This 140-nucleotide RNA sequence from Nannospalax galili belongs to the Rfam family "Small nucleolar RNA SNORA8". The family has 5 seed sequences and 1,490 matches in Rfam 15.1. Rfam links the family to the GO terms nucleolus and RNA processing.

RNA sequence: AACCCUAAUUCUAAGCACUCAGCAGUUUCGUCCUGCUGGUGUGUUCAAAGGACAGUGCGGUAGAAAUAAUUCACUGUCUGGCUCUGUUAGUUUUCUUGGAUUUGGUGUCUAUUAAAGCUGGUAUUUCUAUUGAUACAGUU
Dot-bracket structure: ........((((..((((.((((((.......))))).).))))....))))........(((((((...(((......(((.(....................).))).........))).)))))))...........